Shown here is a 116-nucleotide RNA from Ceratitis capitata, a member of the family "mir-998 microRNA precursor family". The family's consensus secondary structure was predicted with RNAalifold. The source organism's lineage runs through Eukaryota, Protostomia, Arthropoda, Allotriocarida and Ceratitis. Gene Ontology terms of the family: RISC complex and miRNA-mediated post-transcriptional gene silencing.
RNA sequence: AAAAUUCAUUUUGGAACUGAAUUCUCGUGGUUCUGCACUGUGCAUACCAUGAUUAGGUAAACGUAUUGUAAUCGAAAUUUUGUAGCACCAUGAGAUUCAGCUCUGGCGUGAAUUUC
Dot-bracket structure: ..(((((.(.(((((.(((...((((((((..(((((...........................................)))))..))))))))..))).))))).).)))))..